Shown here is an 88-nucleotide RNA from Ralstonia pseudosolanacearum, a member of the family "Burkholderia RNA 7 (anti-hemB)".
A reference for the family is Weinberg et al. (2007), "Identification of 22 candidate structured RNAs in bacteria using the CMfinder comparative genomics pipeline", Nucleic Acids Res.
The sequence is in the family's curated seed alignment.
Its family is annotated with bacterial biofilm matrix and protein binding in the Gene Ontology.
Taxonomically the source falls in Ralstonia pseudosolanacearum (Bacteria, Burkholderiaceae, Ralstonia, Ralstonia solanacearum species complex).
From the family's description: This RNA motif was identified by computational search in b-proteobacteria Burkholderia.

RNA sequence: UCCCCCGCGACGCCUCCCUGACGCGGGCCCCAUCGACGGCUCGAUGGGUCAUUCCCCCCGUUGCGCGUCUGGCGACGGGGUUUUUUUU
Numbered sequence: 001u002c003c004c005c006c007g008c009g010a011c012g013c014c015u016c017c018c019u020g021a022c023g024c025g026g027g028c029c030c031c032a033u034c035g036a037c038g039g040c041u042c043g044a045u046g047g048g049u050c051a052u053u054c055c056c057c058c059c060g061u062u063g064c065g066c067g068u069c070u071g072g073c074g075a076c077g078g079g080g081u082u083u084u085u086u087u088u
Stems, first nucleotide, its partner, number of pairs: 004027006029048003033044003056080008